RNA sequence: CAUUGUCGCCCUUCAUGGGCGUUUCCUCCCUAGACUUGGGCCGUGUCAGACCGACACGGCCUUUUUUUUAUGGAGU
Numbered sequence: 001c002a003u004u005g006u007c008g009c010c011c012u013u014c015a016u017g018g019g020c021g022u023u024u025c026c027u028c029c030c031u032a033g034a035c036u037u038g039g040g041c042c043g044u045g046u047c048a049g050a051c052c053g054a055c056a057c058g059g060c061c062u063u064u065u066u067u068u069u070a071u072g073g074a075g076u
Stems, first nucleotide, its partner, number of pairs: 008020004039061009
This 76-nucleotide sequence from Pontivivens insulae belongs to the Rfam family "Makes More Granules Regulator RNA (mmgR)". The literature on the family includes a 2016 paper in Mol Phylogenet Evol by Lagares et al., "Phylogenetic distribution and evolutionary pattern of an alpha-proteobacterial small RNA gene that controls polyhydroxybutyrate accumulation in Sinorhizobium meliloti". SuhB later renamed mmgR (makes more granules regulator) was a putative non-coding RNA found multiple times in the Agrobacterium tumefaciens genome and related alpha-proteobacteria. The pairing is the family consensus, mapped onto this sequence. Taxonomically the source falls in Pontivivens (Bacteria, Pseudomonadati, Rhodobacterales, Paracoccaceae).